RNA sequence: GUGAAGUUGAUCACAAACAAACAUAUACCCUUUAGUUUGACCGUGAAAAAUUUCUCCCAUCCCCUUUGUUCGUAUUAAAUAAAGAAAAAGGCCCUGCGGCAUGACGGCUGCAGGGCCUUU
Numbered sequence: 001g002u003g004a005a006g007u008u009g010a011u012c013a014c015a016a017a018c019a020a021a022c023a024u025a026u027a028c029c030c031u032u033u034a035g036u037u038u039g040a041c042c043g044u045g046a047a048a049a050a051u052u053u054c055u056c057c058c059a060u061c062c063c064c065u066u067u068g069u070u071c072g073u074a075u076u077a078a079a080u081a082a083a084g085a086a087a088a089a090g091g092c093c094c095u096g097c098g099g100c101a102u103g104a105c106g107g108c109u110g111c112a113g114g115g116c117c118u119u120u
Base pairs, nucleotide, nucleotide: 003054004053005052006051007050008049011046012045013044014043018039019038020037021036022035070086090117091116092115093114094113095112096111097110098109099108100107
Shown here is a 120-nucleotide RNA from Bacillus sp. T33-2, a member of the family "RNA Staph. aureus E (RoxS)". The organism belongs to Bacillus, within Bacteria. Its family is annotated with regulation of translational initiation in the Gene Ontology. It was shown to be regulated by the presence of nitric oxide (NO). In Bacillus subtilis it controls expression of genes with functions related to oxidative stress and oxidation-reduction reactions and it was renamed RoxS (for related to oxidative stress). For this family Rfam cites "A search for small noncoding RNAs in Staphylococcus aureus reveals a conserved sequence motif for regulation" (Geissmann et al., Nucleic Acids Res, 2009). The match comes from Rfam's covariance-model search (99 bits).